[Rfam]
RNA sequence: GAAGACCCUAUGCAGCUUUACUGUAGUUAGUUAUCAUAUUGAUCUAUAACAAUCUUAAUUAAUAGGAAUUAGGGAUGUCGAUAGACGAAAAAUGGAAUACCUUCGAAAUAAGAUUGGGUUAAUAUUUACCUUAUAAUUUAUAAUUAGAGGGAGAGCUGACUAAUUGGCAGUUUGACUGGGGCGGUCGUCUUUAAUAUAGUAGCAAAGUACAUCCAAAGAUUUUUUUUUUUAAUAAUAUUAACUUUGUUAAUAUACACACAGAAAUUAUCAAUAUUUUUUUUAUUGAUCUUUAUUUUUUAUAAUUAAGGUAUAGCUAGAAAAUUGUAUGGAAAUCAAUCAACCAGUGUGAAAGGUUGUAAUGGCGGAAUGGCAGAAUGCAUGCCUAACUGAUAGACUUAGAAGUCGGACAGAUACGUAAGUAGGGCAUACUGACCCUUCGCUAUAUAAUGGAAUAGACGGGGAUCAAUCGAUAAAAGUUACGCUAGGGAUAACAGGUUAAUAGCUGGUGAGAGUACACAUUGUCCCGGCUGUUUGACACCUCGAUGU
Numbered sequence: 001g002a003a004g005a006c007c008c009u010a011u012g013c014a015g016c017u018u019u020a021c022u023g024u025a026g027u028u029a030g031u032u033a034u035c036a037u038a039u040u041g042a043u044c045u046a047u048a049a050c051a052a053u054c055u056u057a058a059u060u061a062a063u064a065g066g067a068a069u070u071a072g073g074g075a076u077g078u079c080g081a082u083a084g085a086c087g088a089a090a091a092a093u094g095g096a097a098u099a100c101c102u103u104c105g106a107a108a109u110a111a112g113a114u115u116g117g118g119u120u121a122a123u124a125u126u127u128a129c130c131u132u133a134u135a136a137u138u139u140a141u142a143a144u145u146a147g148a149g150g151g152a153g154a155g156c157u158g159a160c161u162a163a164u165u166g167g168c169a170g171u172u173u174g175a176c177u178g179g180g181g182c183g184g185u186c187g188u189c190u191u192u193a194a195u196a197u198a199g200u201a202g203c204a205a206a207g208u209a210c211a212u213c214c215a216a217a218g219a220u221u222u223u224u225u226u227u228u229u230u231a232a233u234a235a236u237a238u239u240a241a242c243u244u245u246g247u248u249a250a251u252a253u254a255c256a257c258a259c260a261g262a263a264a265u266u267a268u269c270a271a272u273a274u275u276u277u278u279u280u281u282a283u284u285g286a287u288c289u290u291u292a293u294u295u296u297u298u299a300u301a302a303u304u305a306a307g308g309u310a311u312a313g314c315u316a317g318a319a320a321a322u323u324g325u326a327u328g329g330a331a332a333u334c335a336a337u338c339a340a341c342c343a344g345u346g347u348g349a350a351a352g353g354u355u356g357u358a359a360u361g362g363c364g365g366a367a368u369g370g371c372a373g374a375a376u377g378c379a380u381g382c383c384u385a386a387c388u389g390a391u392a393g394a395c396u397u398a399g400a401a402g403u404c405g406g407a408c409a410g411a412u413a414c415g416u417a418a419g420u421a422g423g424g425c426a427u428a429c430u431g432a433c434c435c436u437u438c439g440c441u442a443u444a445u446a447a448u449g450g451a452a453u454a455g456a457c458g459g460g461g462a463u464c465a466a467u468c469g470a471u472a473a474a475a476g477u478u479a480c481g482c483u484a485g486g487g488a489u490a491a492c493a494g495g496u497u498a499a500u501a502g503c504u505g506g507u508g509a510g511a512g513u514a515c516a517c518a519u520u521g522u523c524c525c526g527g528c529u530g531u532u533u534g535a536c537a538c539c540u541c542g543a544u545g546u
Stems, first nucleotide, its partner, number of pairs: 007486004012482002014478005020171004027163007036125010061115003068098003077086003129151004134146004174186004187210002189207004211467001213424002220381001222379001224377001225361001362371002387410003391406001393404003412421003435461005441455001443454002495536003499533001500530007510520002
The family of this 546-nucleotide part of an RNA is "Bacterial large subunit ribosomal RNA". The family's consensus secondary structure is taken from published work.